The family of this 232-nucleotide RNA from Variimorphobacter saccharofermentans is "T-box leader".
Rfam describes the family as follows. Uncharged tRNA acts as the effector for transcription antitermination of genes in the T-box leader family. T-boxes are found upstream of many aminoacyl-tRNA synthetase genes and some amino acid biosynthetic genes usually in Gram-positive bacteria. The anticodon of a specific tRNA base pairs to a specifier sequence within the T-box motif, and the NCCA acceptor tail of the tRNA base pairs to a conserved bulge in the T-box antiterminator hairpin.
The match comes from Rfam's covariance-model search (104 bits).
Lineage of the source: Bacteria > Bacillati > Lachnospirales > Lachnospiraceae > Variimorphobacter.
The base pairs follow the family's consensus structure, which is taken from published work.

RNA sequence: UGAAAUGUAUUGAUGGAGAGGAUUAGAUAAGCAGCGCAAAUCAGAGAGAGACACUCGGAGGCUGAAAGGUGUUUCAAAGCGAACUUAUUGAAGGUAGCUCCGGAGCAGUAUUUCCGAAACCAGAUGGUGCGUAAGAAAUACCGGGAAGUCCCGUUACAGACCAAGAGAUAGUAAAACCAUAUUUAUGGAUUUGCUAUGAAUAAAGGUGGUACCACGGCUCUUCGUCCUUUAA
Numbered sequence: 001u002g003a004a005a006u007g008u009a010u011u012g013a014u015g016g017a018g019a020g021g022a023u024u025a026g027a028u029a030a031g032c033a034g035c036g037c038a039a040a041u042c043a044g045a046g047a048g049a050g051a052c053a054c055u056c057g058g059a060g061g062c063u064g065a066a067a068g069g070u071g072u073u074u075c076a077a078a079g080c081g082a083a084c085u086u087a088u089u090g091a092a093g094g095u096a097g098c099u100c101c102g103g104a105g106c107a108g109u110a111u112u113u114c115c116g117a118a119a120c121c122a123g124a125u126g127g128u129g130c131g132u133a134a135g136a137a138a139u140a141c142c143g144g145g146a147a148g149u150c151c152c153g154u155u156a157c158a159g160a161c162c163a164a165g166a167g168a169u170a171g172u173a174a175a176a177c178c179a180u181a182u183u184u185a186u187g188g189a190u191u192u193g194c195u196a197u198g199a200a201u202a203a204a205g206g207u208g209g210u211a212c213c214a215c216g217g218c219u220c221u222u223c224g225u226c227c228u229u230u231a232a
Stems, first nucleotide, its partner, number of pairs: 007106002015101004026089006041076001050073006109140006142153003168197007203229004214225004